[Rfam]
RNA sequence: CCGGUUCUGAUAUGUCUGGUAUUCUUGGGUUGUGCUUUUUAUGCGAUCAACCAUUAUGCUGGACAUAUCCGAUCUUGG
Numbered sequence: 001c002c003g004g005u006u007c008u009g010a011u012a013u014g015u016c017u018g019g020u021a022u023u024c025u026u027g028g029g030u031u032g033u034g035c036u037u038u039u040u041a042u043g044c045g046a047u048c049a050a051c052c053a054u055u056a057u058g059c060u061g062g063a064c065a066u067a068u069c070c071g072a073u074c075u076u077g078g
Stems, first nucleotide, its partner, number of pairs: 009069014028052004
The record is a 78-nucleotide RNA sequence from Acrobeloides nanus, which matches "mir-50 microRNA precursor family" in Rfam.
NCBI's taxonomy places the organism under Eukaryota, Protostomia, Cephalobomorpha, Cephaloboidea, Acrobeloides.
The literature on the family includes a 2001 paper in Science by Lau et al., "An abundant class of tiny RNAs with probable regulatory roles in Caenorhabditis elegans".
A search with the family's covariance model found it, with a score of 49 bits.
The family's consensus secondary structure was predicted with RNAalifold.
Its Rfam clan is "mir-50 clan".